RNA sequence: UUUUAUGGACAAUGAAAACCAUAAAAACACCUGGAAUAAUUUUGCAAAGUUUGUAUUAUGGG
Numbered sequence: 001u002u003u004u005a006u007g008g009a010c011a012a013u014g015a016a017a018a019c020c021a022u023a024a025a026a027a028c029a030c031c032u033g034g035a036a037u038a039a040u041u042u043u044g045c046a047a048a049g050u051u052u053g054u055a056u057u058a059u060g061g062g
Stems, first nucleotide, its partner, number of pairs: 001026008030062004034057002036054004

Annotation:
Rfam assigns this 62-nucleotide RNA from Pelagibacterales bacterium SAG-MED10 to the family "pntA sRNA". The match comes from Rfam's covariance-model search (83 bits). The family's consensus secondary structure is taken from published work.